Rfam assigns this 84-nucleotide RNA sequence from Pythium oligandrum to the family "tRNA".
RNA sequence: GCCUACUUGGUGAAAUUGGUAAACACGAUAGAUUUAAAAUCUGUUCCCUUUUCUGGGUUAUUGGUUCAAGUCCAAUAGUAGGUA
Numbered sequence: 001g002c003c004u005a006c007u008u009g010g011u012g013a014a015a016u017u018g019g020u021a022a023a024c025a026c027g028a029u030a031g032a033u034u035u036a037a038a039a040u041c042u043g044u045u046c047c048c049u050u051u052u053c054u055g056g057g058u059u060a061u062u063g064g065u066u067c068a069a070g071u072c073c074a075a076u077a078g079u080a081g082g083u084a
Stems, first nucleotide, its partner, number of pairs: 001083007010026003028044005060076005
By type it is a transfer RNA.